[Rfam]
RNA: Selenocysteine transfer RNA
RNA sequence: GGAGGCGUCUGUGUCCUGGUGGGCACCGCGGUCUUCAACACCGUCGUGGCCUGGUAUCCAGGUCAGGUGGGUUCGAUUCCUGUCCGCCUCC
Numbered sequence: 001g002g003a004g005g006c007g008u009c010u011g012u013g014u015c016c017u018g019g020u021g022g023g024c025a026c027c028g029c030g031g032u033c034u035u036c037a038a039c040a041c042c043g044u045c046g047u048g049g050c051c052u053g054g055u056a057u058c059c060a061g062g063u064c065a066g067g068u069g070g071g072u073u074c075g076a077u078u079c080c081u082g083u084c085c086g087c088c089u090c091c
Base pairs, nucleotide, nucleotide: 001091002090003089004088005087006086007085011026012025013024014023015022016021028044029043030042031041032040047065048064049063050062051061068082069081070080071079